[Rfam]
RNA sequence: CGGUGAGGUAGAGGAGCGAUCAUCAAGAGUAUUCAAUGGAAGCAAUGACAAGCUAUGAACAUUGGAGAAAGGGGUGAUUGCCGAAGACUGUGGUUGAGAGUCAAUCAAUCUUAGUCUGGUGUAGUUUCUCUUAAGAGGAGAUACACUGUCAUGCAUGCUCAUUUGGGUGCAUGGGGCGCUACUGAUCGA
Numbered sequence: 001c002g003g004u005g006a007g008g009u010a011g012a013g014g015a016g017c018g019a020u021c022a023u024c025a026a027g028a029g030u031a032u033u034c035a036a037u038g039g040a041a042g043c044a045a046u047g048a049c050a051a052g053c054u055a056u057g058a059a060c061a062u063u064g065g066a067g068a069a070a071g072g073g074g075u076g077a078u079u080g081c082c083g084a085a086g087a088c089u090g091u092g093g094u095u096g097a098g099a100g101u102c103a104a105u106c107a108a109u110c111u112u113a114g115u116c117u118g119g120u121g122u123a124g125u126u127u128c129u130c131u132u133a134a135g136a137g138g139a140g141a142u143a144c145a146c147u148g149u150c151a152u153g154c155a156u157g158c159u160c161a162u163u164u165g166g167g168u169g170c171a172u173g174g175g176g177c178g179c180u181a182c183u184g185a186u187c188g189a
Stems, first nucleotide, its partner, number of pairs: 007183005016081009032066007085117006092110005118147006125140004149174007
RNA: Lysine riboswitch aptamer
Organism: Halobacillus sp. BBL2006